[Rfam]
RNA sequence: CUUGUGGAGUAUUACAGAAACUAUAGUAGCAAGUAUAACUGCGAGAUAGAAUACGAUGAAACAAGAA
Numbered sequence: 001c002u003u004g005u006g007g008a009g010u011a012u013u014a015c016a017g018a019a020a021c022u023a024u025a026g027u028a029g030c031a032a033g034u035a036u037a038a039c040u041g042c043g044a045g046a047u048a049g050a051a052u053a054c055g056a057u058g059a060a061a062c063a064a065g066a067a
Stems, first nucleotide, its partner, number of pairs: 001065005009054005021049003029042003033039002